[Rfam]
Rfam assigns this 74-nucleotide RNA from Medicago truncatula to the family "MIR5272 microRNA precursor family". Gene Ontology terms of the family: miRNA-mediated post-transcriptional gene silencing and RISC complex. The base pairs follow the family's consensus structure, which was predicted with RNAalifold.
RNA sequence: UUUGAUGUAAAUUGAUUUAUGUUUGAAAACACUCAUUUAAAAGUGAUUCUUAUGUGUUGAUGUUGUUUGGGUAC
Numbered sequence: 001u002u003u004g005a006u007g008u009a010a011a012u013u014g015a016u017u018u019a020u021g022u023u024u025g026a027a028a029a030c031a032c033u034c035a036u037u038u039a040a041a042a043g044u045g046a047u048u049c050u051u052a053u054g055u056g057u058u059g060a061u062g063u064u065g066u067u068u069g070g071g072u073a074c
Base pairs, nucleotide, nucleotide: 011061012060013059014058015057016056018054021053022052025049026048027047030045031044032043033042